[Rfam]
RNA sequence: UAUAUUCUCAUAAGGCAAAUUCUGAAUACAAAAGCUACACUCCCAAUCUCCUAUUUACAUGAAAACAUAUAACAACAAUCCCAUACCAAAUUGUUUGAUUCACAUCACACCUAAAAUACAAACAUUUAGAAAGGACUCUUUCAAAACUUAAUUCAAGGAAGAAAUAUGCAAAUAUAUAUAAAACUAGAGAAGCCUCUUCCUGAAGUUUCUGGUGGUUGAUUGAUAAGUACGAGCGAGAAGACCCACACCAAUCCCAAGACCAACACAGACGCCAAGUCCAAU
Numbered sequence: 001u002a003u004a005u006u007c008u009c010a011u012a013a014g015g016c017a018a019a020u021u022c023u024g025a026a027u028a029c030a031a032a033a034g035c036u037a038c039a040c041u042c043c044c045a046a047u048c049u050c051c052u053a054u055u056u057a058c059a060u061g062a063a064a065a066c067a068u069a070u071a072a073c074a075a076c077a078a079u080c081c082c083a084u085a086c087c088a089a090a091u092u093g094u095u096u097g098a099u100u101c102a103c104a105u106c107a108c109a110c111c112u113a114a115a116a117u118a119c120a121a122a123c124a125u126u127u128a129g130a131a132a133g134g135a136c137u138c139u140u141u142c143a144a145a146a147c148u149u150a151a152u153u154c155a156a157g158g159a160a161g162a163a164a165u166a167u168g169c170a171a172a173u174a175u176a177u178a179u180a181a182a183a184c185u186a187g188a189g190a191a192g193c194c195u196c197u198u199c200c201u202g203a204a205g206u207u208u209c210u211g212g213u214g215g216u217u218g219a220u221u222g223a224u225a226a227g228u229a230c231g232a233g234c235g236a237g238a239a240g241a242c243c244c245a246c247a248c249c250a251a252u253c254c255c256a257a258g259a260c261c262a263a264c265a266c267a268g269a270c271g272c273c274a275a276g277u278c279c280a281a282u
Stems, first nucleotide, its partner, number of pairs: 011203001013201002023057006032041001090126001092124006098117003132198004138192004153188002156185002166177003205273001207271001208269004212264002215260003218253005227246002231243001234240001

Rfam assigns this 282-nucleotide RNA from Brassica rapa to the family "TeloSII non coding RNA 33".
Taxonomically the source falls in Brassica (Eukaryota, Streptophyta, Streptophytina, Spermatophyta).
Rfam describes the family as follows. Located downstream of the TeloSII elements. These elements have been shown to coordinate the expression of protein-coding gene related to ribosome biogenesis throughout the cell cycle in Arabidopsis.
By type it is a small RNA.